[Rfam]
RNA sequence: CGAGACAAAUGGCAAACGGGGUGAAAGCUCCGGACGCAAAGCUGCAGACCCUAACCUGGAAUGACAGGAGGGUGGCUGGGUUACCUCG
Numbered sequence: 001c002g003a004g005a006c007a008a009a010u011g012g013c014a015a016a017c018g019g020g021g022u023g024a025a026a027g028c029u030c031c032g033g034a035c036g037c038a039a040a041g042c043u044g045c046a047g048a049c050c051c052u053a054a055c056c057u058g059g060a061a062u063g064a065c066a067g068g069a070g071g072g073u074g075g076c077u078g079g080g081u082u083a084c085c086u087c088g
Stems, first nucleotide, its partner, number of pairs: 012037002017032006040082004045078003048073003055068004
Shown here is an 88-nucleotide RNA from Candidatus Accumulibacter cognatus, a member of the family "c-di-GMP-I riboswitch aptamer". About the family: GEMM was predicted in a large-scale screen for bacterial structured RNA regulatory elements. Taxonomically the source falls in Candidatus Accumulibacter (Bacteria, Pseudomonadati, Pseudomonadota, Betaproteobacteria).